[Rfam]
RNA sequence: UAUGCCUUUAAAUCAGUCCUGUGAGGCUGAGAAGGAAACGGAUAAAUUGGUUGGGAUACCUAUGCCCAUACUGAUAAACUCUUUUACCUCUCACCUCGAAGCGUGAGAGGUUUUUUUAUU
Numbered sequence: 001u002a003u004g005c006c007u008u009u010a011a012a013u014c015a016g017u018c019c020u021g022u023g024a025g026g027c028u029g030a031g032a033a034g035g036a037a038a039c040g041g042a043u044a045a046a047u048u049g050g051u052u053g054g055g056a057u058a059c060c061u062a063u064g065c066c067c068a069u070a071c072u073g074a075u076a077a078a079c080u081c082u083u084u085u086a087c088c089u090c091u092c093a094c095c096u097c098g099a100a101g102c103g104u105g106a107g108a109g110g111u112u113u114u115u116u117u118a119u120u
Stems, first nucleotide, its partner, number of pairs: 003037001005035005013030006046075006054067002057064002086111009
The record is a 120-nucleotide RNA from Bacillus sp. 7884-1, which matches "PyrR binding site" in Rfam. A reference for the family is Bonner et al. (2001), "Molecular recognition of pyr mRNA by the Bacillus subtilis attenuation regulatory protein PyrR", Nucleic Acids Res. The source organism's lineage runs through Bacteria, Bacillota, Caryophanales, Bacillaceae and Bacillus. By type it is a cis-regulatory element.